RNA sequence: GUUAACCGGUGAGUUUGCUGCUCGGCAAACAUCGCUUAUUAACGUGUGCGCUAAUCGCGCACGAAUGCAACAGUUUCCAAAGUUCAAACUUUGUUCAACUGUUGCAUUUUAAG
Numbered sequence: 001g002u003u004a005a006c007c008g009g010u011g012a013g014u015u016u017g018c019u020g021c022u023c024g025g026c027a028a029a030c031a032u033c034g035c036u037u038a039u040u041a042a043c044g045u046g047u048g049c050g051c052u053a054a055u056c057g058c059g060c061a062c063g064a065a066u067g068c069a070a071c072a073g074u075u076u077c078c079a080a081a082g083u084u085c086a087a088a089c090u091u092u093g094u095u096c097a098a099c100u101g102u103u104g105c106a107u108u109u110u111a112a113g
Base pairs, nucleotide, nucleotide: 011033012032013030014029015028016027017026018025019024046062047061048060049059050058051057065107066106067105068104069103070102071101072100073099074098075097078093079092080091081090082089083088
The record is a 113-nucleotide RNA from Treponema vincentii, which matches "TD-1 RNA" in Rfam. Rfam classes the family as a cis-regulatory element. NCBI's taxonomy places the organism under Bacteria, Treponematales, Treponemataceae, Treponema, Treponema vincentii.